[Rfam]
Notes: This 202-nucleotide RNA from Paenibacillus protaetiae belongs to the Rfam family "c-di-AMP riboswitch aptamer (ydaO/yuaA leader)". Taxonomically the source falls in Paenibacillus (Bacteria, Bacilli, Caryophanales, Paenibacillaceae). It scores 83 bits against the family's covariance model.
RNA sequence: AGUACCCAGUCGCUGAAUUUUGCCGGAAUGGCAAAAGCGGGGGAACCAAACGGGCGGGAACAGGCUGCCGGCUGGCUAUUCAAGAGCCGGCGCAGCCAAUCCGCCCAUGGGGUGAGUCGCGCGGCUUCAAUGAAGCAGCGCGUAGGGCGACUUCCGCGCCCGAAUCCGACAGCUAACCUCGUAAGCGUGUCCGGGAGAGACA
Numbered sequence: 001a002g003u004a005c006c007c008a009g010u011c012g013c014u015g016a017a018u019u020u021u022g023c024c025g026g027a028a029u030g031g032c033a034a035a036a037g038c039g040g041g042g043g044a045a046c047c048a049a050a051c052g053g054g055c056g057g058g059a060a061c062a063g064g065c066u067g068c069c070g071g072c073u074g075g076c077u078a079u080u081c082a083a084g085a086g087c088c089g090g091c092g093c094a095g096c097c098a099a100u101c102c103g104c105c106c107a108u109g110g111g112g113u114g115a116g117u118c119g120c121g122c123g124g125c126u127u128c129a130a131u132g133a134a135g136c137a138g139c140g141c142g143u144a145g146g147g148c149g150a151c152u153u154c155c156g157c158g159c160c161c162g163a164a165u166c167c168g169a170c171a172g173c174u175a176a177c178c179u180c181g182u183a184a185g186c187g188u189g190u191c192c193g194g195g196a197g198a199g200a201c202a
Base pairs, nucleotide, nucleotide: 011187012186013185014184018036019035020034021033022032023031024030025029037182038181039180040179041178042177047109048108110167111166112165118142119141120140121139145161146160147159148158